RNA sequence: UUGUUUGCAGGUGCGGCGUCAUCAAGAUUCACAUGCGAAAUACGACGCGGUCGUGCUUUUUUCGGAGAUGAGAAUCUUGAUGAUGCUGCAUCGGCAACCAA
Numbered sequence: 001u002u003g004u005u006u007g008c009a010g011g012u013g014c015g016g017c018g019u020c021a022u023c024a025a026g027a028u029u030c031a032c033a034u035g036c037g038a039a040a041u042a043c044g045a046c047g048c049g050g051u052c053g054u055g056c057u058u059u060u061u062u063c064g065g066a067g068a069u070g071a072g073a074a075u076c077u078u079g080a081u082g083a084u085g086c087u088g089c090a091u092c093g094g095c096a097a098c099c100a101a
Stems, first nucleotide, its partner, number of pairs: 010092021032070002